MIR6152 microRNA precursor family: a 94-nucleotide sequence from Nicotiana sylvestris. The organism belongs to Nicotiana, within Eukaryota.
RNA sequence: UUGAGUUUCAAAUAUUCGACUGUAUUCACGGCGUGAAACAGGGGAUUACACUGUUUUUAAACGGAAACUGUAUCAAUUAACAUAAUAGACUCCU
Numbered sequence: 001u002u003g004a005g006u007u008u009c010a011a012a013u014a015u016u017c018g019a020c021u022g023u024a025u026u027c028a029c030g031g032c033g034u035g036a037a038a039c040a041g042g043g044g045a046u047u048a049c050a051c052u053g054u055u056u057u058u059a060a061a062c063g064g065a066a067a068c069u070g071u072a073u074c075a076a077u078u079a080a081c082a083u084a085a086u087a088g089a090c091u092c093c094u
Base pairs, nucleotide, nucleotide: 007088008087012083013082015080016079018078019077021075022074024073025072027070028069032063033062034061035057036056037055038054039053040052041051